[Rfam]
RNA sequence: CAGCUCCUGUCUUGGCGCCUAAUUUGGUUACAAAAUUCGGUGUAUGUUACAGGAGCAAAAUUAUGUCCUUCGGGAUAGUCUGGCUACUUCGGUAUUAGGUCCAAAUAUUGCCUAAUAUUAUCCUCUGGGUCAGAAACAAGA
Numbered sequence: 001c002a003g004c005u006c007c008u009g010u011c012u013u014g015g016c017g018c019c020u021a022a023u024u025u026g027g028u029u030a031c032a033a034a035a036u037u038c039g040g041u042g043u044a045u046g047u048u049a050c051a052g053g054a055g056c057a058a059a060a061u062u063a064u065g066u067c068c069u070u071c072g073g074g075a076u077a078g079u080c081u082g083g084c085u086a087c088u089u090c091g092g093u094a095u096u097a098g099g100u101c102c103a104a105a106u107a108u109u110g111c112c113u114a115a116u117a118u119u120a121u122c123c124u125c126u127g128g129g130u131c132a133g134a135a136a137c138a139a140g141a
Stems, first nucleotide, its partner, number of pairs: 003056008015043004021037004066075003079134005084128002091119002095115006
A member of the RNA family "Nematode snoRNA ceN88" from Mesorhabditis spiculigera, 141 nucleotides long. Taxonomically the source falls in Mesorhabditis (Eukaryota, Opisthokonta, Protostomia, Chromadorea). It scores 80 bits against the family's covariance model. Rfam links the family to the GO terms nucleolus and RNA processing. It is annotated as an H/ACA-box small nucleolar RNA. Rfam 15.1 lists 99 matches to the family in 51 species. On this family, see Jia et al., BMC Mol Biol 2007: "Systematic identification of non-coding RNA 2,2,7-trimethylguanosine cap structures in Caenorhabditis elegans".